This 148-nucleotide sequence from Rhizobium sp. Root482 belongs to the Rfam family "Alphaproteobacterial sRNA ar7". Rfam classes the family as a small RNA. The pairing is the family consensus, mapped onto this sequence.

RNA sequence: CAACGGCAGUCAAGCACGCCGUCGUCUGGUUGAAGGCCUGUCCCCCGCCGAAACCAGAUGCAAGGACAAAGGCCUAUCCCCCCUCUCCGGGCCUUUGUCCAAUUCUGACAAGACCGCCGUGGCCCCGCCUCCGCCACGGCGGUUUUUG
Numbered sequence: 001c002a003a004c005g006g007c008a009g010u011c012a013a014g015c016a017c018g019c020c021g022u023c024g025u026c027u028g029g030u031u032g033a034a035g036g037c038c039u040g041u042c043c044c045c046c047g048c049c050g051a052a053a054c055c056a057g058a059u060g061c062a063a064g065g066a067c068a069a070a071g072g073c074c075u076a077u078c079c080c081c082c083c084u085c086u087c088c089g090g091g092c093c094u095u096u097g098u099c100c101a102a103u104u105c106u107g108a109c110a111a112g113a114c115c116g117c118c119g120u121g122g123c124c125c126c127g128c129c130u131c132c133g134c135c136a137c138g139g140c141g142g143u144u145u146u147u148g
Base pairs, nucleotide, nucleotide: 025058026057027056028055029054030053031052035049036048037047064100065099066098067097068096069095070094071093072092073091074090112144114142115141116140117139118138119137120136121135122134123133